[Rfam]
RNA sequence: UUUGCCUUCGAAUAACUGGAUGUGGAAAUUUGAGACCACAUUCGGUUCAGACAAGGGCAUAUAAUAAACAUACGAGGGGGAUUGUGUGGGAAUUUAUUUCUUCACUUUUCCAAUUCCUCUUGAAUCAAUCUUUAAUAAUGGAGAGGAGUGAUUUUCCUUUCUUAAGAUUGUUCUUACAUUU
Dot-bracket structure: ..((((((.....((((((((.(((..........))).))))))))......))))))..............((((((..(((.(..((((........))).)....))))...)))......(((((((...............................))))))))))........
RNA: Small nucleolar RNA snoR138